The family of this 138-nucleotide RNA sequence from Mus spicilegus is "Small nucleolar RNA SNORA17". Clan: SNORA17 clan. The base pairs follow the family's consensus structure, which was predicted with RNAalifold. It scores 79 bits against the family's covariance model. Rfam classes the family as an H/ACA-box small nucleolar RNA.
RNA sequence: CCUGUCACUUGCAGUAUUUCAGAUGUGGGUGCUGUGUCACAUGUGUAUGAGUUGGUGGCAGAGAUGAGAGAAGCUAUAUUUAUGGUCAGUGUCCUGAUCCUGACCUAUGAACAUUUGAACAGUUAAUAACCUAACAUU
Numbered sequence: 001c002c003u004g005u006c007a008c009u010u011g012c013a014g015u016a017u018u019u020c021a022g023a024u025g026u027g028g029g030u031g032c033u034g035u036g037u038c039a040c041a042u043g044u045g046u047a048u049g050a051g052u053u054g055g056u057g058g059c060a061g062a063g064a065u066g067a068g069a070g071a072a073g074c075u076a077u078a079u080u081u082a083u084g085g086u087c088a089g090u091g092u093c094c095u096g097a098u099c100c101u102g103a104c105c106u107a108u109g110a111a112c113a114u115u116u117g118a119a120c121a122g123u124u125a126a127u128a129a130c131c132u133a134a135c136a137u138u
Stems, first nucleotide, its partner, number of pairs: 002061005008054001014048002020045002024041005068135001071132001073130001075128003083121002086118004090113003094109001